[Rfam]
RNA sequence: UGGCCCAUCGGGGUGACGGAUAUCUGCUUUUUAAAAAUUUU
Numbered sequence: 001u002g003g004c005c006c007a008u009c010g011g012g013g014u015g016a017c018g019g020a021u022a023u024c025u026g027c028u029u030u031u032u033a034a035a036a037a038u039u040u041u
Stems, first nucleotide, its partner, number of pairs: 003014004017026003
Rfam assigns this 41-nucleotide RNA sequence from Homo sapiens to the family "XIST RNA A repeat".
NCBI's taxonomy places the organism under Eukaryota, Bilateria, Dipnotetrapodomorpha, Euarchontoglires, Homo.
Rfam 15.1 lists 900 matches to the family in 145 species.
A search with the family's covariance model found it, with a score of 38 bits.
The family's RNA type in Rfam is small RNA.